[Rfam]
RNA sequence: ACUGGAGGACUAAGAAGGCUGAGUCUGAUGAAGCAAGGCUCUGCUGAUACAAUCCUCCUAGAAAAAAGGGUUGGAGAGAGCGGUCCUAUUUGGAGAAUAUUAUAGGGCUCACUGUACUACCCAACAUUC
Numbered sequence: 001a002c003u004g005g006a007g008g009a010c011u012a013a014g015a016a017g018g019c020u021g022a023g024u025c026u027g028a029u030g031a032a033g034c035a036a037g038g039c040u041c042u043g044c045u046g047a048u049a050c051a052a053u054c055c056u057c058c059u060a061g062a063a064a065a066a067a068g069g070g071u072u073g074g075a076g077a078g079a080g081c082g083g084u085c086c087u088a089u090u091u092g093g094a095g096a097a098u099a100u101u102a103u104a105g106g107g108c109u110c111a112c113u114g115u116a117c118u119a120c121c122c123a124a125c126a127u128u129c
Stems, first nucleotide, its partner, number of pairs: 002061002004058006017045003021041006068122004079113002082109006091102003
RNA: Small Cajal body specific RNA 4